[Rfam]
Nucleotides: 094
Base pairs, nucleotide, nucleotide: 002061003060004059005058006057007056008055021048022047023046024045026043027042028041029040030039031038
Number, partner (000 for none) and nucleotide at each position: 001000c002061c003060g004059u005058u006057c007056g008055a009000g010000g011000g012000g013000c014000g015000c016000u017000g018000c019000a020000g021048u022047u023046c024045u025000g026043g027042c028041g029040a030039c031038a032000u033000g034000g035000c036000a037000a038031u039030g040029u041028u042027g043026c044000g045024a046023g047022a048021g049000c050000g051000a052000g053000g054000c055008u056007c057006g058005a059004a060003u061002g062000g063000a064000c065000u066000c067000a068000a069000u070000c071000a072000a073000u074000g075000a076000a077000u078000a079000a080000c081000g082000g083000c084000g085000c086000c087000c088000a089000u090000u091000c092000c093000u094000g